[Rfam]
RNA sequence: CCAACAAUCACUAACUCUCUCCCUCAAAGGCUAUUCUGGUAUAUGGAUAUGCAAAUCCUUGUUAGUUGUUACUUGGAGUAGCCGUUGAGGUGAGAGCGUUAUAGAAUGUUGG
Numbered sequence: 001c002c003a004a005c006a007a008u009c010a011c012u013a014a015c016u017c018u019c020u021c022c023c024u025c026a027a028a029g030g031c032u033a034u035u036c037u038g039g040u041a042u043a044u045g046g047a048u049a050u051g052c053a054a055a056u057c058c059u060u061g062u063u064a065g066u067u068g069u070u071a072c073u074u075g076g077a078g079u080a081g082c083c084g085u086u087g088a089g090g091u092g093a094g095a096g097c098g099u100u101a102u103a104g105a106a107u108g109u110u111g112g
Base pairs, nucleotide, nucleotide: 001112002111003110004109005108009104012101013099017096018095019094020093021092022090023089024088025087027085029083030082031081032080033079034078036076046070047069048068